[Rfam]
RNA sequence: UUUGAGGGGAAUGUUGUCUGGCUCGAGGCCACCAACUCCAUCUUUCAAUCUCGAUCCAACUCUACAGAUCUUGAUAAAGAUAACUUAGAUUACUUGAUUUUGUGUCGUCGGACCAGGCUUCAUUCCCCUCAAU
Numbered sequence: 001u002u003u004g005a006g007g008g009g010a011a012u013g014u015u016g017u018c019u020g021g022c023u024c025g026a027g028g029c030c031a032c033c034a035a036c037u038c039c040a041u042c043u044u045u046c047a048a049u050c051u052c053g054a055u056c057c058a059a060c061u062c063u064a065c066a067g068a069u070c071u072u073g074a075u076a077a078a079g080a081u082a083a084c085u086u087a088g089a090u091u092a093c094u095u096g097a098u099u100u101u102g103u104g105u106c107g108u109c110g111g112a113c114c115a116g117g118c119u120u121c122a123u124u125c126c127c128c129u130c131a132a133u
Stems, first nucleotide, its partner, number of pairs: 002132012016118006024110003
The record is a 133-nucleotide RNA sequence from Tetracentron sinense, which matches "mir-166 microRNA precursor family" in Rfam. The literature on the family includes a 2001 paper in Cell by Ambros, "microRNAs: tiny regulators with great potential". Its family is annotated with RISC complex and miRNA-mediated post-transcriptional gene silencing in the Gene Ontology. Rfam 15.1 lists 2,599 matches to the family in 229 species. From the family's description: This family represents the plant microRNA (miRNA) precursor mir-166.